[Rfam]
RNA sequence: UAAAUCGAAGAGGUUGCGACCCACAUGAGUCCAUCAGCUGAGUUUCUGUAAGAACGUUGAAGCUGGUCAAAAGGGGCGGUCGCCGAAGCGCUUGCUGUUACAGCGGUAAGUUAGCUGGGACGUGGUUUAAGAAAUCACGGACUGUCGCGGGGCAUAUCCCCGCGGGGCGCUAUCGAAAAU
Number, nucleotide and partner (000 for none) at each position: 001u000002a000003a000004a000005u000006c175007g174008a000009a171010g170011a000012g000013g000014u000015u000016g083017c082018g081019a080020c079021c078022c000023a000024c075025a000026u000027g000028a000029g000030u000031c000032c000033a067034u066035c065036a064037g063038c062039u061040g000041a000042g000043u000044u000045u000046c000047u000048g000049u000050a000051a000052g000053a000054a000055c000056g000057u000058u000059g000060a000061a039062g038063c037064u036065g035066g034067u033068c000069a000070a000071a000072a000073g000074g000075g024076g000077c000078g021079g020080u019081c018082g017083c016084c000085g000086a000087a116088g115089c114090g111091c110092u109093u108094g107095c106096u105097g104098u000099u000100a000101c000102a000103g000104c097105g096106g095107u094108a093109a092110g091111u090112u000113a000114g089115c088116u087117g143118g142119g000120a000121c139122g138123u137124g136125g135126u134127u133128u000129a000130a000131g000132a000133a127134a126135u125136c124137a123138c122139g121140g000141a000142c118143u117144g000145u165146c164147g163148c162149g161150g160151g159152g000153c000154a000155u000156a000157u000158c000159c151160c150161c149162g148163c147164g146165g145166g000167g000168c000169g000170c010171u009172a000173u000174c007175g006176a000177a000178a000179a000180u000
The record is a 180-nucleotide RNA sequence from Secundilactobacillus similis, which matches "Lysine riboswitch aptamer" in Rfam. Rfam links the family to the GO term lysine biosynthetic process. The organism belongs to Secundilactobacillus similis, within Bacteria. Riboswitches are metabolite binding domains within certain messenger RNAs that serve as precision sensors for their corresponding targets. Allosteric rearrangement of mRNA structure is mediated by ligand binding, and this results in modulation of gene expression. This family includes riboswitches that sense lysine in a number of genes involved in lysine metabolism, including lysC. The family's consensus secondary structure is taken from published work.